[Rfam]
RNA sequence: UAUGCGGAGUGGGUAAACGCGGUAUUUAAGUAACUAAUACUGAGGAAAGUCCGUACCUCUAAAGGGCUUCAUGCAAGCUAACGGCUUGAAGGCGAAAGCCUAUGGAAAGUGCAGCAGAAAAUAUACCGCCAAUUUGGUAAGGGUGAAAAGGCAUGGUAAGAGCAUACCGCAUUUAUGGCGACAUGAAUGGCAGUGUAAACCCCAUGAGAGGCAAGAGCAAACAGAAACGGAUUGCCCUUUUCCUAUGUUUCAGGUGGCUCGCUAAAGCAUUGUAGUGAUAUAAUGCGUAGAUAAAUGUUUACCUUAAAUGACAGAAUACGGCUUAUAGCUCCGCUUUUUAU
Numbered sequence: 001u002a003u004g005c006g007g008a009g010u011g012g013g014u015a016a017a018c019g020c021g022g023u024a025u026u027u028a029a030g031u032a033a034c035u036a037a038u039a040c041u042g043a044g045g046a047a048a049g050u051c052c053g054u055a056c057c058u059c060u061a062a063a064g065g066g067c068u069u070c071a072u073g074c075a076a077g078c079u080a081a082c083g084g085c086u087u088g089a090a091g092g093c094g095a096a097a098g099c100c101u102a103u104g105g106a107a108a109g110u111g112c113a114g115c116a117g118a119a120a121a122u123a124u125a126c127c128g129c130c131a132a133u134u135u136g137g138u139a140a141g142g143g144u145g146a147a148a149a150g151g152c153a154u155g156g157u158a159a160g161a162g163c164a165u166a167c168c169g170c171a172u173u174u175a176u177g178g179c180g181a182c183a184u185g186a187a188u189g190g191c192a193g194u195g196u197a198a199a200c201c202c203c204a205u206g207a208g209a210g211g212c213a214a215g216a217g218c219a220a221a222c223a224g225a226a227a228c229g230g231a232u233u234g235c236c237c238u239u240u241u242c243c244u245a246u247g248u249u250u251c252a253g254g255u256g257g258c259u260c261g262c263u264a265a266a267g268c269a270u271u272g273u274a275g276u277g278a279u280a281u282a283a284u285g286c287g288u289a290g291a292u293a294a295a296u297g298u299u300u301a302c303c304u305u306a307a308a309u310g311a312c313a314g315a316a317u318a319c320g321g322c323u324u325a326u327a328g329c330u331c332c333g334c335u336u337u338u339u340a341u
Stems, first nucleotide, its partner, number of pairs: 002336001004334007011326001012303007020042007047324003051321005056211004064244003069207005074088005089103001090101004104202002109200002111196003126142002128138004150168002153165003169191001170189008215260004224251006267286008